[Rfam]
RNA sequence: GUGCAGGACAAAACACAAAGUGUUUUGAACAGCGCUUGCGCUGGCUCCGAAGGAGCGAGGCCAGAGGCUGAGUCACGCGGCAAGACCGCGAG
Numbered sequence: 001g002u003g004c005a006g007g008a009c010a011a012a013a014c015a016c017a018a019a020g021u022g023u024u025u026u027g028a029a030c031a032g033c034g035c036u037u038g039c040g041c042u043g044g045c046u047c048c049g050a051a052g053g054a055g056c057g058a059g060g061c062c063a064g065a066g067g068c069u070g071a072g073u074c075a076c077g078c079g080g081c082a083a084g085a086c087c088g089c090g091a092g
Stems, first nucleotide, its partner, number of pairs: 009027008030043005044056005059074003077089004
RNA: Aggregatibacter sRNA 22
Organism: Klebsiella michiganensis